[Rfam]
RNA: Nuclear RNase P
Organism: Trichoderma virens
RNA sequence: GCCCUCUUCAACGCUGCGUUUCCAUGCUACAAACAGAGAGCCUGCGCAAGCAGCCUCUCGCAUUCUGCUCCUCGCAUGUGGGAAAUUCGGAGAAAGCUUCAAAGCAGGAGGGGCCUCGUGCCGCCUCCUGUGCUCGGUUCCACGUUCAUCGUUGUGUUCUCGAGUCCGCCUGUGAUGGCCUGGCGUCAUCCCGACGUCUGCAACAGACAUCAGAAAUCUCAGGCCCGGGAGGCCUCGUGUGUAUACCUCUGCUCUGCGGGGGGAAGAUGCGUGGGUUUCUUUCCCGGUGCCUAUGGGAAGUCGUUGCGAAGCUUGUUGCGCAAACUUGAGUGCGAUAUGCAGCGUUUGUCUUGCCUUGUGCAAGAUGAAUCACACAAUUCCGAUCAUUCUGUUGAGGGC
Numbered sequence: 001g002c003c004c005u006c007u008u009c010a011a012c013g014c015u016g017c018g019u020u021u022c023c024a025u026g027c028u029a030c031a032a033a034c035a036g037a038g039a040g041c042c043u044g045c046g047c048a049a050g051c052a053g054c055c056u057c058u059c060g061c062a063u064u065c066u067g068c069u070c071c072u073c074g075c076a077u078g079u080g081g082g083a084a085a086u087u088c089g090g091a092g093a094a095a096g097c098u099u100c101a102a103a104g105c106a107g108g109a110g111g112g113g114c115c116u117c118g119u120g121c122c123g124c125c126u127c128c129u130g131u132g133c134u135c136g137g138u139u140c141c142a143c144g145u146u147c148a149u150c151g152u153u154g155u156g157u158u159c160u161c162g163a164g165u166c167c168g169c170c171u172g173u174g175a176u177g178g179c180c181u182g183g184c185g186u187c188a189u190c191c192c193g194a195c196g197u198c199u200g201c202a203a204c205a206g207a208c209a210u211c212a213g214a215a216a217u218c219u220c221a222g223g224c225c226c227g228g229g230a231g232g233c234c235u236c237g238u239g240u241g242u243a244u245a246c247c248u249c250u251g252c253u254c255u256g257c258g259g260g261g262g263g264a265a266g267a268u269g270c271g272u273g274g275g276u277u278u279c280u281u282u283c284c285c286g287g288u289g290c291c292u293a294u295g296g297g298a299a300g301u302c303g304u305u306g307c308g309a310a311g312c313u314u315g316u317u318g319c320g321c322a323a324a325c326u327u328g329a330g331u332g333c334g335a336u337a338u339g340c341a342g343c344g345u346u347u348g349u350c351u352u353g354c355c356u357u358g359u360g361c362a363a364g365a366u367g368a369a370u371c372a373c374a375c376a377a378u379u380c381c382g383a384u385c386a387u388u389c390u391g392u393u394g395a396g397g398g399c
Stems, first nucleotide, its partner, number of pairs: 001399004009391002013343007023078004036059005041053001088382005097311004168180001170178002182198006200307005206301001221292003344370011